[Rfam]
RNA sequence: UAAGCUGAGCCAGCCGCCCGCCACAAUCCCGGUCAAGUCCUAUUGACCGGAGAUUGUCCAGUGGUGGCUAAGAGCAGUGAC
Numbered sequence: 001u002a003a004g005c006u007g008a009g010c011c012a013g014c015c016g017c018c019c020g021c022c023a024c025a026a027u028c029c030c031g032g033u034c035a036a037g038u039c040c041u042a043u044u045g046a047c048c049g050g051a052g053a054u055u056g057u058c059c060a061g062u063g064g065u066g067g068c069u070a071a072g073a074g075c076a077g078u079g080a081c
Stems, first nucleotide, its partner, number of pairs: 004078004012069007019061001023057006030049005
This 81-nucleotide RNA from Petromyzon marinus belongs to the Rfam family "mir-4599 microRNA precursor family". The organism belongs to Petromyzon, within Eukaryota. The base pairs follow the family's consensus structure, which was predicted with RNAalifold. It is one of the family's seed sequences.